RNA sequence: CCCCCCUUUUUUAAAAAAUUUUUUUUUUUUUUUUUUGGAAAAAAAAAAAAAAAAAAAAUUUAAAAAAACCCCCCGGGCCCCCCGGGGGGUUUUUUUUUU
Numbered sequence: 001c002c003c004c005c006c007u008u009u010u011u012u013a014a015a016a017a018a019u020u021u022u023u024u025u026u027u028u029u030u031u032u033u034u035u036u037g038g039a040a041a042a043a044a045a046a047a048a049a050a051a052a053a054a055a056a057a058a059u060u061u062a063a064a065a066a067a068a069c070c071c072c073c074c075g076g077g078c079c080c081c082c083c084g085g086g087g088g089g090u091u092u093u094u095u096u097u098u099u
Stems, first nucleotide, its partner, number of pairs: 014061003019056014034041002065093012